About this RNA: Repression of heat shock gene expression (ROSE) element: a 103-nucleotide sequence from Sphingobium wenxiniae. This family represents a 5' UTR cis-regulatory element found in heat shock mRNAs and is known as the ROSE (repression of heat shock gene expression) element. The ROSE element is a negative regulator of heat shock gene expression. The secondary structure is thought to be regulated by temperature. This regulation blocks access to the ribosome binding site under normal conditions. Rfam 15.1 lists 381 matches to the family in 262 species. The base pairs follow the family's consensus structure, which is taken from published work.
RNA sequence: CCGGACGCCGUUCGGGUCCGGUUGGACAUAGAGAGCGUCGGCUCUCCGUUUACCGGCGCCUCUCAUGCCCAGAUCGCUUCAUAGGAGGAUUUGGAAAUGAGAA
Numbered sequence: 001c002c003g004g005a006c007g008c009c010g011u012u013c014g015g016g017u018c019c020g021g022u023u024g025g026a027c028a029u030a031g032a033g034a035g036c037g038u039c040g041g042c043u044c045u046c047c048g049u050u051u052a053c054c055g056g057c058g059c060c061u062c063u064c065a066u067g068c069c070c071a072g073a074u075c076g077c078u079u080c081a082u083a084g085g086a087g088g089a090u091u092u093g094g095a096a097a098u099g100a101g102a103a
Base pairs, nucleotide, nucleotide: 001021002020003019004018005017006016008015009014033061035059036058037057038056039055040054041053062101063100064099065098066097069094070093071092072091073090074089075088077087078086079085